[Rfam]
RNA sequence: UAUCAGAGUAUACGUGGUGUUCUGGUAAGCAUGACGCUUAUGAGAUCACGCGUAUAUUCGCUAGA
Numbered sequence: 001u002a003u004c005a006g007a008g009u010a011u012a013c014g015u016g017g018u019g020u021u022c023u024g025g026u027a028a029g030c031a032u033g034a035c036g037c038u039u040a041u042g043a044g045a046u047c048a049c050g051c052g053u054a055u056a057u058u059c060g061c062u063a064g065a
Base pairs, nucleotide, nucleotide: 006059007058008057009056010055011054012053013052014051015050016049018048019047021045022044023043025041026040027039028038029037030036
This 65-nucleotide RNA sequence from Haemonchus contortus belongs to the Rfam family "mir-5885 microRNA precursor family". The source organism's lineage runs through Eukaryota, Chromadorea, Rhabditida, Trichostrongylidae and Haemonchus. It is one of the family's seed sequences. The family's consensus secondary structure was predicted with RNAalifold. Its family is annotated with RISC complex and miRNA-mediated post-transcriptional gene silencing in the Gene Ontology.